[Rfam]
This 72-nucleotide RNA sequence from Ictidomys tridecemlineatus belongs to the Rfam family "Small nucleolar RNA SNORD56". Lineage of the source: Eukaryota > Teleostomi > Rodentia > Xerinae > Ictidomys. The literature on the family includes a 2002 paper in Mol Cell Biol by Galardi et al., "Purified box C/D snoRNPs are able to reproduce site-specific 2'-O-methylation of target RNA in vitro". The match comes from Rfam's covariance-model search (48 bits).
RNA sequence: CUACAAUGAUAGUUAAUAUUUUCCAUCAGUAGCAAUUCACCUAGUGAGUGUUGAUACCUGACCUGUGGUUAA
Dot-bracket structure: .((....(((..............)))..........................................)).